[Rfam]
RNA sequence: UUGUAAAGAACACCUUUGUUUUCUGAAGUAGGCAGUGCUUUUGUGCCGUUUGGGAAAUGUAAUGAGUCAAGAUAUCGCUUCUACUGCCAUUAUAUUGGUUGGCAAUUUGAUUGUUGCUUGACUACAU
Numbered sequence: 001u002u003g004u005a006a007a008g009a010a011c012a013c014c015u016u017u018g019u020u021u022u023c024u025g026a027a028g029u030a031g032g033c034a035g036u037g038c039u040u041u042u043g044u045g046c047c048g049u050u051u052g053g054g055a056a057a058u059g060u061a062a063u064g065a066g067u068c069a070a071g072a073u074a075u076c077g078c079u080u081c082u083a084c085u086g087c088c089a090u091u092a093u094a095u096u097g098g099u100u101g102g103c104a105a106u107u108u109g110a111u112u113g114u115u116g117c118u119u120g121a122c123u124a125c126a127u
Stems, first nucleotide, its partner, number of pairs: 006040003010036002013032003017028001065123002068120004074111004083106001085104005091097001
Overview:
The record is a 127-nucleotide sequence from Dioscorea zingiberensis, which matches "Small nucleolar RNA snoR111" in Rfam. Lineage of the source: Eukaryota > Tracheophyta > Magnoliopsida > Dioscoreales > Dioscorea. The base pairs follow the family's consensus structure, which was predicted with WAR. Rfam classes the family as an H/ACA-box small nucleolar RNA. On this family, see Marker et al., Curr Biol 2002: "Experimental RNomics: identification of 140 candidates for small non-messenger RNAs in the plant Arabidopsis thaliana".